[Rfam]
RNA sequence: GUGGAAUGAGGUAGUAGUUUGUAUAGUUUUAGGAUCACACCAGAUCUGGGAGAUAACUAUACAGCCUACUGUCUUUCUCAC
Number, nucleotide and partner (000 for none) at each position: 001g081002u080003g079004g078005a000006a076007u000008g075009a074010g073011g072012u071013a070014g069015u068016a067017g066018u000019u064020u063021g062022u061023a060024u059025a058026g057027u056028u000029u000030u000031a000032g000033g000034a000035u000036c000037a000038c000039a000040c000041c000042a000043g000044a000045u052046c000047u000048g000049g000050g000051a000052g045053a000054u000055a000056a027057c026058u025059a024060u023061a022062c021063a020064g019065c000066c017067u016068a015069c014070u013071g012072u011073c010074u009075u008076u006077c000078u004079c003080a002081c001